Rfam assigns this 129-nucleotide RNA from Methanocaldococcus jannaschii to the family "HgcC family RNA". For this family Rfam cites "Noncoding RNA genes identified in AT-rich hyperthermophiles" (Klein et al., Proc Natl Acad Sci U S A, 2002). From the family's description: The HgcC ncRNA gene was identified computationally in AT-rich hyperthermophiles. The genes were named hgcA through hgcG ('high GC'). HgcC is of unknown function. The source organism's lineage runs through Archaea, Methanococci, Methanococcales, Methanocaldococcus and Methanocaldococcus jannaschii. Pairs were carried over by alignment from the consensus structure, which was predicted with RNAalifold.
RNA sequence: GAGGGCUGUCUGACCCAGCCCGAUGAGCUGAACCUGCCCUGUGACCUACCGGCGACGGUAGGGAGAAGGGUGUUCCCCGUGGGAACCUCCGAGCUUUAGCUCGGAGAGGAGGUCAGCUUUUAACAUUUC
Numbered sequence: 001g002a003g004g005g006c007u008g009u010c011u012g013a014c015c016c017a018g019c020c021c022g023a024u025g026a027g028c029u030g031a032a033c034c035u036g037c038c039c040u041g042u043g044a045c046c047u048a049c050c051g052g053c054g055a056c057g058g059u060a061g062g063g064a065g066a067a068g069g070g071u072g073u074u075c076c077c078c079g080u081g082g083g084a085a086c087c088u089c090c091g092a093g094c095u096u097u098a099g100c101u102c103g104g105a106g107a108g109g110a111g112g113u114c115a116g117c118u119u120u121u122a123a124c125a126u127u128u129c
Stems, first nucleotide, its partner, number of pairs: 003021006036071005047060005072086005087106008

The family has 5 seed sequences and 10 matches in Rfam 15.1.